[Rfam]
The record is a 107-nucleotide RNA sequence from Mycetocola reblochoni, which matches "ZMP/ZTP riboswitch aptamer (pfl RNA motif)" in Rfam. A search with the family's covariance model found it, with a score of 46 bits. For this family Rfam cites "Recognition of the bacterial alarmone ZMP through long-distance association of two RNA subdomains" (Jones and Ferre-D'Amare, Nat Struct Mol Biol, 2015). Lineage of the source: Bacteria > Bacillati > Microbacteriaceae > Mycetocola > Mycetocola reblochoni.
RNA sequence: GAACCGUGUCGCAACUGGCGUAGAAGCGGGGUCCGCGCACCCCGCCCAAGAUGGUCACCAUCGGGGAGCGACUGACACGGAUUCGGCCGCACGCCUGGGCCGAUACG
Numbered sequence: 001g002a003a004c005c006g007u008g009u010c011g012c013a014a015c016u017g018g019c020g021u022a023g024a025a026g027c028g029g030g031g032u033c034c035g036c037g038c039a040c041c042c043c044g045c046c047c048a049a050g051a052u053g054g055u056c057a058c059c060a061u062c063g064g065g066g067a068g069c070g071a072c073u074g075a076c077a078c079g080g081a082u083u084c085g086g087c088c089g090c091a092c093g094c095c096u097g098g099g100c101c102g103a104u105a106c107g
Base pairs, nucleotide, nucleotide: 005074008072009071010070011069012068015065016064017095018094019093020092021091051061052060053059054058084102085101086100087099088098